[Rfam]
The record is a 60-nucleotide RNA from Butyrivibrio proteoclasticus, which matches "S4-Clostridia ribosomal protein leader" in Rfam. The match comes from Rfam's covariance-model search (39 bits).
RNA sequence: GAAAGAUCGGAUUAUACUUUGUCCGGUUGGGUCUUAUUAUUUGUAAUGACCCCAAUCAAA
Numbered sequence: 001g002a003a004a005g006a007u008c009g010g011a012u013u014a015u016a017c018u019u020u021g022u023c024c025g026g027u028u029g030g031g032u033c034u035u036a037u038u039a040u041u042u043g044u045a046a047u048g049a050c051c052c053c054a055a056u057c058a059a060a
Stems, first nucleotide, its partner, number of pairs: 005028008029052005

Taxonomically the source falls in Butyrivibrio proteoclasticus (Bacteria, Bacillati, Bacillota, Lachnospirales).